[Rfam]
RNA sequence: AUCCGUCCGCUCCGGCACUCCACAUUCUGCCGAGAGCGGGACGAAAAAAGGAGGAGAACCCCGCCUGGCUCGCGGUGCGGCAGUGUGGAGACCUGCCACAGAGCGGACCGGCCCGGCCGGCCGUGAGGGAACAGCUGCGGAGGCGCUGUUUCCAGAGCCUGAUAUCAUGGCA
Numbered sequence: 001a002u003c004c005g006u007c008c009g010c011u012c013c014g015g016c017a018c019u020c021c022a023c024a025u026u027c028u029g030c031c032g033a034g035a036g037c038g039g040g041a042c043g044a045a046a047a048a049a050g051g052a053g054g055a056g057a058a059c060c061c062c063g064c065c066u067g068g069c070u071c072g073c074g075g076u077g078c079g080g081c082a083g084u085g086u087g088g089a090g091a092c093c094u095g096c097c098a099c100a101g102a103g104c105g106g107a108c109c110g111g112c113c114c115g116g117c118c119g120g121c122c123g124u125g126a127g128g129g130a131a132c133a134g135c136u137g138c139g140g141a142g143g144c145g146c147u148g149u150u151u152c153c154a155g156a157g158c159c160u161g162a163u164a165u166c167a168u169g170g171c172a
Base pairs, nucleotide, nucleotide: 006040007039008038009037010036011035012034013032014031015030016029017028061075062074063073064072065161067159068158069157070156071155076100077099079097080096081095082094083093085092086091103124104123105122106121108120109119110118111117127153128152129151130150131149132148133147134146136145137144138143

The family of this 172-nucleotide RNA is "malK-I RNA". It is one of the family's seed sequences. It is annotated as a cis-regulatory element.